[Rfam]
RNA sequence: ACCUUAUACAAAUGUAUUAACUGCGAGACAAGUUAGCAUUUCCCUGUAAGGUGGUGUUAAGUAGAAACUUUAACGAUAAGUGCUAUUGCGUAGCUUUUAAAGUUGAAAUAGUAUGAGUUAAAGUGGAAUAGGUUAACCGUAAGACCUUAAGUUGAGAAACUUUAAAAUUGACCUUAAUGAUUUUAUACUUGUUAAGUUGCGGUUUG
Numbered sequence: 001a002c003c004u005u006a007u008a009c010a011a012a013u014g015u016a017u018u019a020a021c022u023g024c025g026a027g028a029c030a031a032g033u034u035a036g037c038a039u040u041u042c043c044c045u046g047u048a049a050g051g052u053g054g055u056g057u058u059a060a061g062u063a064g065a066a067a068c069u070u071u072a073a074c075g076a077u078a079a080g081u082g083c084u085a086u087u088g089c090g091u092a093g094c095u096u097u098u099a100a101a102g103u104u105g106a107a108a109u110a111g112u113a114u115g116a117g118u119u120a121a122a123g124u125g126g127a128a129u130a131g132g133u134u135a136a137c138c139g140u141a142a143g144a145c146c147u148u149a150a151g152u153u154g155a156g157a158a159a160c161u162u163u164a165a166a167a168u169u170g171a172c173c174u175u176a177a178u179g180a181u182u183u184u185a186u187a188c189u190u191g192u193u194a195a196g197u198u199g200c201g202g203u204u205u206g
Stems, first nucleotide, its partner, number of pairs: 001052008010041006018035005023029001067124008081113007092104002095101001130147005136203006142168001149162005173196008
RNA: IS605-orfB-I RNA